RNA: SAM (S-adenosyl methionine) riboswitch aptamer
RNA sequence: GGUCACGAGCACCAGCACGCAGGCCCGGCUCGCUGGUCGGCAACCCCCAGUCACGGCGGGGUGCCCCGGGACAGACCUGGCUCACCCCGCGGGGCAGAGCAAGCGUGAUCC
Number, nucleotide and partner (000 for none) at each position: 001g077002g076003u075004c074005a000006c000007g000008a000009g038010c000011a037012c036013c035014a034015g033016c032017a000018c000019g000020c000021a030022g029023g000024c000025c000026c000027g000028g000029c022030u021031c000032g016033c015034u014035g013036g012037u011038c009039g065040g064041c063042a000043a000044c061045c060046c059047c056048c055049a000050g000051u000052c000053a000054c000055g048056g047057c000058g000059g046060g045061g044062u000063g041064c040065c039066c000067c000068g000069g000070g000071a000072c000073a000074g004075a003076c002077c001078u000079g000080g100081c099082u098083c097084a000085c094086c093087c092088c000089g000090c000091g000092g087093g086094g085095c000096a000097g083098a082099g081100c080101a000102a000103g000104c000105g000106u000107g000108a000109u000110c000111c000